[Rfam]
RNA sequence: GCCAUCGAAAGGCACGACAUCUGAAAGGAUGGUCACGCAAAGCUGCGGAUCUAACGGGAAACCUAUGAUAGCCGGGCUGCCAUA
Number, nucleotide and partner (000 for none) at each position: 001g000002c000003c000004a000005u000006c000007g000008a000009a000010a000011g000012g038013c037014a000015c000016g000017a033018c031019a030020u029021c028022u027023g000024a000025a000026a000027g022028g021029a020030u019031g018032g000033u017034c000035a000036c000037g013038c012039a000040a000041a078042g077043c076044u075045g000046c074047g073048g072049a069050u068051c067052u000053a000054a000055c000056g063057g062058g000059a000060a000061a000062c057063c056064u000065a000066u000067g051068a050069u049070a000071g000072c048073c047074g046075g044076g043077c042078u041079g000080c000081c000082a000083u000084a000
The record is an 84-nucleotide RNA from Alishewanella agri, which matches "c-di-GMP-I riboswitch aptamer" in Rfam. From the family's description: GEMM was predicted in a large-scale screen for bacterial structured RNA regulatory elements.